[Rfam]
RNA sequence: CGUAUCAAGGAGCGUUGCGACAAGACAUCGAUCUUGCCAGGCUUGAUACCGUCAAUAUGCAACUGCGCUCACGUUAC
Numbered sequence: 001c002g003u004a005u006c007a008a009g010g011a012g013c014g015u016u017g018c019g020a021c022a023a024g025a026c027a028u029c030g031a032u033c034u035u036g037c038c039a040g041g042c043u044u045g046a047u048a049c050c051g052u053c054a055a056u057a058u059g060c061a062a063c064u065g066c067g068c069u070c071a072c073g074u075u076a077c
Base pairs, nucleotide, nucleotide: 002049003048004047005046006045007044008043021036022035023034024033025032

Source information: The family of this 77-nucleotide sequence from Herbaspirillum sp. meg3 is "SAH (S-adenosyl-L-homocysteine) riboswitch aptamer". The source organism's lineage runs through Bacteria, Pseudomonadota, Burkholderiales, Oxalobacteraceae and Herbaspirillum. On this family, see Wang et al., Mol Cell 2008: "Riboswitches that sense S-adenosylhomocysteine and activate genes involved in coenzyme recycling".